[Rfam]
RNA sequence: UGAAUUUAAUCAACAAAACACACACAUAUCGACACAUCCGUCCUGGGUGCCGCUUUGCGGUGGGGCGAUGGGAUAUGUGGAGGUUAUAAC
Dot-bracket structure: ......................((((((((....(((.((((((....(((((...)))))))))))))).))))))))...........
RNA: t44 RNA